Shown here is a 70-nucleotide RNA from Gasterosteus aculeatus, a member of the family "Small nucleolar RNA Z40". The family's consensus secondary structure was predicted with PFOLD.
RNA sequence: UGUGUCAUGAUGAUCGGCUAAAUGUUCAACUGCUCUGAAGUGUGAUUGACAUCUGCCUCUCUGAACCGCA
Numbered sequence: 001u002g003u004g005u006c007a008u009g010a011u012g013a014u015c016g017g018c019u020a021a022a023u024g025u026u027c028a029a030c031u032g033c034u035c036u037g038a039a040g041u042g043u044g045a046u047u048g049a050c051a052u053c054u055g056c057c058u059c060u061c062u063g064a065a066c067c068g069c070a
Base pairs, nucleotide, nucleotide: 002069003068004066005065
The literature on the family includes a 2003 paper in Nucleic Acids Res by Chen et al., "The high diversity of snoRNAs in plants: identification and comparative study of 120 snoRNA genes from Oryza sativa".
Gene Ontology terms of the family: RNA processing and nucleolus.
It is annotated as a C/D-box small nucleolar RNA.